[Rfam]
RNA sequence: UGCAGAUGAUGCUAACCUUUUGCUGUCUAAAUACACUUGAUGAUAACUACCAAGAUCAUUGAUGCA
Numbered sequence: 001u002g003c004a005g006a007u008g009a010u011g012c013u014a015a016c017c018u019u020u021u022g023c024u025g026u027c028u029a030a031a032u033a034c035a036c037u038u039g040a041u042g043a044u045a046a047c048u049a050c051c052a053a054g055a056u057c058a059u060u061g062a063u064g065c066a
Stems, first nucleotide, its partner, number of pairs: 001066004
The record is a 66-nucleotide RNA from Amazona collaria, which matches "Small nucleolar RNA SNORD24" in Rfam. A reference for the family is Hirose and Steitz (2001), "Position within the host intron is critical for efficient processing of box C/D snoRNAs in mammalian cells", Proc Natl Acad Sci U S A. NCBI's taxonomy places the organism under Eukaryota, Eumetazoa, Craniata, Amniota, Amazona. Pairs were carried over by alignment from the consensus structure, which was predicted with PFOLD.